This 77-nucleotide RNA sequence from Capitella teleta belongs to the Rfam family "mir-29 microRNA precursor family". NCBI's taxonomy places the organism under Eukaryota, Opisthokonta, Scolecida, Capitellidae, Capitella. Rfam's curators put it in the seed alignment. The family has 168 seed sequences and 3,328 matches in Rfam 15.1.
RNA sequence: GGCGCCUGGUCUCACAUGGUGGAUAGAGUUGGCUUCGGCGCCAUUGAACCUUUAGCACCAUUUGAAAUCAGUGCUUC
Number, nucleotide and partner (000 for none) at each position: 001g077002g076003c000004g074005c000006c071007u070008g069009g068010u067011c000012u065013c064014a063015c000016a061017u060018g059019g058020u057021g056022g000023a000024u054025a053026g052027a051028g000029u000030u000031g000032g000033c000034u000035u000036c000037g000038g000039c000040g000041c000042c000043a000044u000045u000046g000047a000048a000049c000050c000051u027052u026053u025054a024055g000056c021057a020058c019059c018060a017061u016062u000063u014064g013065a012066a000067a010068u009069c008070a007071g006072u000073g000074c004075u000076u002077c001
Gene Ontology terms of the family: gene silencing by miRNA and RISC complex.